[Rfam]
RNA sequence: CAAAGCCAAGGGCAAACCCUUUGAAAAUCGGGGGCGCAAAGCCACAGGGUCUAAGGCGUUUUAUAAAACGCUACGAUAGCCUGGCUGCCAAA
Numbered sequence: 001c002a003a004a005g006c007c008a009a010g011g012g013c014a015a016a017c018c019c020u021u022u023g024a025a026a027a028u029c030g031g032g033g034g035c036g037c038a039a040a041g042c043c044a045c046a047g048g049g050u051c052u053a054a055g056g057c058g059u060u061u062u063a064u065a066a067a068a069c070g071c072u073a074c075g076a077u078a079g080c081c082u083g084g085c086u087g088c089c090a091a092a
Stems, first nucleotide, its partner, number of pairs: 012037002017032003022027001040086004046082003049077003056071006

The record is a 92-nucleotide sequence from Acetitomaculum ruminis, which matches "c-di-GMP-I riboswitch aptamer" in Rfam. The organism belongs to Acetitomaculum ruminis, within Bacteria. From the family's description: GEMM was predicted in a large-scale screen for bacterial structured RNA regulatory elements.